[Rfam]
RNA sequence: UCGGCCCCGGUUCACGCGCGUGCAUUCCGCCCGUGCGACCCGGCGCC
Number, nucleotide and partner (000 for none) at each position: 001u000002c000003g047004g046005c045006c000007c043008c042009g041010g040011u000012u000013c000014a000015c037016g036017c035018g034019c033020g032021u000022g030023c029024a000025u000026u000027c000028c000029g023030c022031c000032c020033g019034u018035g017036c016037g015038a000039c000040c010041c009042g008043g007044c000045g005046c004047c003

Description
The record is a 47-nucleotide RNA sequence from Streptomyces qinzhouensis, which matches "L31-Actinobacteria ribosomal protein leader" in Rfam. Pairs were carried over by alignment from the consensus structure, which is taken from published work. NCBI's taxonomy places the organism under Bacteria, Actinomycetota, Actinomycetes, Kitasatosporales, Streptomyces.